[Rfam]
RNA sequence: UUGAAGGCCUGGAGACUGAAGUCCUCUCUCGAUCCGAGGAACAGGUACGGCACAGGCAGCGGCAGUGCAAGCUUUUCCACUGUCCCACCAAUGUGCCUCAGUCCUGGCCUGGAGGGACCGUGUGUCUAGGGACAAGAGGGUUAUUCAGUCUCCACGCCCUUCAAUCCUUGGCUGCU
Numbered sequence: 001u002u003g004a005a006g007g008c009c010u011g012g013a014g015a016c017u018g019a020a021g022u023c024c025u026c027u028c029u030c031g032a033u034c035c036g037a038g039g040a041a042c043a044g045g046u047a048c049g050g051c052a053c054a055g056g057c058a059g060c061g062g063c064a065g066u067g068c069a070a071g072c073u074u075u076u077c078c079a080c081u082g083u084c085c086c087a088c089c090a091a092u093g094u095g096c097c098u099c100a101g102u103c104c105u106g107g108c109c110u111g112g113a114g115g116g117a118c119c120g121u122g123u124g125u126c127u128a129g130g131g132a133c134a135a136g137a138g139g140g141u142u143a144u145u146c147a148g149u150c151u152c153c154a155c156g157c158c159c160u161u162c163a164a165u166c167c168u169u170g171g172c173u174g175c176u
Stems, first nucleotide, its partner, number of pairs: 002163003006158002010154011023140002026138002029136001033132002038105002041102001047098001050096005061084005109129005115123001
RNA: TUC338
Organism: Ornithorhynchus anatinus